Annotation
Rfam assigns this 108-nucleotide sequence from Schaedlerella arabinosiphila to the family "TPP riboswitch aptamer (THI element)". The family's consensus secondary structure is taken from published work.

RNA sequence: UAAAAUAUUCAGGGGAGCUUGUAUCGGCAGGCUGAGAGGAAGUAAUCAACUUCGACCCUUAUACCUGAUGCGGAUAAUGCCGCCGUAGGAAGUCACAGUUGAUUUUUU
Numbered sequence: 001u002a003a004a005a006u007a008u009u010c011a012g013g014g015g016a017g018c019u020u021g022u023a024u025c026g027g028c029a030g031g032c033u034g035a036g037a038g039g040a041a042g043u044a045a046u047c048a049a050c051u052u053c054g055a056c057c058c059u060u061a062u063a064c065c066u067g068a069u070g071c072g073g074a075u076a077a078u079g080c081c082g083c084c085g086u087a088g089g090a091a092g093u094c095a096c097a098g099u100u101g102a103u104u105u106u107u108u
Stems, first nucleotide, its partner, number of pairs: 010092001011059004017032005039053005064089004070083004